[Rfam]
RNA sequence: UCAUUAAGUGAUGACAUGACAGAUGAAGUAUCACGUCAUCAAGUCUAAUCAUUGACACAACAUUGUCACAUCAUUAAAAAUAAUGACAUGACAAUAAGGUAUUAGUGAUAAGGGGUGACAACAUGACAUUUUGUUUGUCACGUCAUCACUUAACAGAA
Numbered sequence: 001u002c003a004u005u006a007a008g009u010g011a012u013g014a015c016a017u018g019a020c021a022g023a024u025g026a027a028g029u030a031u032c033a034c035g036u037c038a039u040c041a042a043g044u045c046u047a048a049u050c051a052u053u054g055a056c057a058c059a060a061c062a063u064u065g066u067c068a069c070a071u072c073a074u075u076a077a078a079a080a081u082a083a084u085g086a087c088a089u090g091a092c093a094a095u096a097a098g099g100u101a102u103u104a105g106u107g108a109u110a111a112g113g114g115g116u117g118a119c120a121a122c123a124u125g126a127c128a129u130u131u132u133g134u135u136u137g138u139c140a141c142g143u144c145a146u147c148a149c150u151u152a153a154c155a156g157a158a
Stems, first nucleotide, its partner, number of pairs: 001156001004153012017140013031126003035122002039118003044113003048109005054103002057100002071086004